epsC RNA: a 114-nucleotide sequence from Paenibacillus roseus. Rfam 15.1 lists 450 matches to the family in 334 species. NCBI's taxonomy places the organism under Bacteria, Bacilli, Caryophanales, Paenibacillaceae, Paenibacillus. The base pairs follow the family's consensus structure, which is taken from published work.

[Rfam]
RNA sequence: AGGUAAUGCCUACUAUACCUCUAUCAUUGUAGGCACCCGGUCAUGCGGUGGGAUGCUUACAUCCUUAGACGUUAAUCGUCGAGCGUGUGGAGAUGGGCAUGGGCUCGAGACCCG
Number, nucleotide and partner (000 for none) at each position: 001a020002g019003g018004u017005a000006a000007u035008g034009c033010c032011u031012a030013c029014u000015a000016u000017a004018c003019c002020u001021c000022u000023a000024u000025c000026a000027u000028u000029g013030u012031a011032g010033g009034c008035a007036c097037c096038c095039g094040g000041u090042c089043a088044u087045g086046c085047g084048g000049u000050g065051g064052g063053a062054u061055g060056c000057u000058u000059a000060c055061a054062u053063c052064c051065u050066u000067a000068g080069a079070c078071g077072u000073u000074a000075a000076u000077c071078g070079u069080c068081g000082a000083g000084c047085g046086u045087g044088u043089g042090g041091a000092g000093a000094u039095g038096g037097g036098c000099a000100u114101g113102g112103g111104c000105u000106c000107g000108a000109g000110a000111c103112c102113c101114g100